[Rfam]
RNA: skipping-rope RNA
RNA sequence: AGUAUUUGAGGAUAGAAAAGGCAGCUAUCACCCUAGUUAGGAGAUAUGGGAGUGCCACCCCAUCUAAUACU
Numbered sequence: 001a002g003u004a005u006u007u008g009a010g011g012a013u014a015g016a017a018a019a020g021g022c023a024g025c026u027a028u029c030a031c032c033c034u035a036g037u038u039a040g041g042a043g044a045u046a047u048g049g050g051a052g053u054g055c056c057a058c059c060c061c062a063u064c065u066a067a068u069a070c071u
Stems, first nucleotide, its partner, number of pairs: 001071006008064001011029005020056004031041001046063005